[Rfam]
RNA sequence: UAAAGCCUGUGAUGAAACAAGUUAUCCCUGUCUGAACAGCAGUGUGGACCUACGGUAGUCUGAGGUUUGA
Numbered sequence: 001u002a003a004a005g006c007c008u009g010u011g012a013u014g015a016a017a018c019a020a021g022u023u024a025u026c027c028c029u030g031u032c033u034g035a036a037c038a039g040c041a042g043u044g045u046g047g048a049c050c051u052a053c054g055g056u057a058g059u060c061u062g063a064g065g066u067u068u069g070a
Stems, first nucleotide, its partner, number of pairs: 001070001003068005

This 70-nucleotide RNA from Coregonus sp. 'balchen' belongs to the Rfam family "Small nucleolar RNA R38". The family's consensus secondary structure was predicted with PFOLD. Lineage of the source: Eukaryota > Opisthokonta > Vertebrata > Teleostomi > Coregonus. snoR38 is a C/D box small nucleolar RNA conserved across yeast, human, Arabidopsis and rice. It is encoded in the intron of elongation factor-1 gamma in both pombe and cerevisiae. snoR38 guides the methylation of 2'-O-ribose sites in 28S rRNA.